Shown here is a 119-nucleotide RNA from Pseudomonas sp. HLS-6, a member of the family "Group II catalytic intron D1-D4-2".
For this family Rfam cites "The ins and outs of group II introns" (Bonen and Vogel, Trends Genet, 2001).
The match comes from Rfam's covariance-model search (113 bits).
The pairing is the family consensus, mapped onto this sequence.
Rfam's curators write: Group II introns are found in rRNA, tRNA and mRNA of organelles in fungi, plants and protists, and also in mRNA in bacteria.

[Rfam]
RNA sequence: GGGAGUAGGUCUCCCGAAGUCUGCUUGCAGGAGCUGGCUUCAAACCACCCGGUGCUGCUGCGUCCAAAAGGCGUGGUGGUGAGCGACCGUUGGAAAAGGCGCCAAUGAAGGCGUCAGGU
Numbered sequence: 001g002g003g004a005g006u007a008g009g010u011c012u013c014c015c016g017a018a019g020u021c022u023g024c025u026u027g028c029a030g031g032a033g034c035u036g037g038c039u040u041c042a043a044a045c046c047a048c049c050c051g052g053u054g055c056u057g058c059u060g061c062g063u064c065c066a067a068a069a070g071g072c073g074u075g076g077u078g079g080u081g082a083g084c085g086a087c088c089g090u091u092g093g094a095a096a097a098g099g100c101g102c103c104a105a106u107g108a109a110g111g112c113g114u115c116a117g118g119u
Base pairs, nucleotide, nucleotide: 001015002014003013004012005011016041017040018039019038020037021036023034024033025032026031046118048093049092050089051088052087053086054080055079057077058076059075061073062072063071064070098115099114100113101112102111103110